[Rfam]
RNA sequence: GGCCACCUUCGGGGGGCUAAACAUAUAGGGUCGGCAACGGCCCGCAAGCAAACGGAAGACAGAAA
Dot-bracket structure: ((((.(((...))))))).........((((((....))))))......................
Numbered sequence: 001g002g003c004c005a006c007c008u009u010c011g012g013g014g015g016g017c018u019a020a021a022c023a024u025a026u027a028g029g030g031u032c033g034g035c036a037a038c039g040g041c042c043c044g045c046a047a048g049c050a051a052a053c054g055g056a057a058g059a060c061a062g063a064a065a
Stems, first nucleotide, its partner, number of pairs: 001018004006014003028043006
Rfam assigns this 65-nucleotide RNA from Pseudoprimorskyibacter insulae to the family "L2-Alphaproteobacteria ribosomal protein leader". Rfam classes the family as a cis-regulatory leader. It scores 67 bits against the family's covariance model.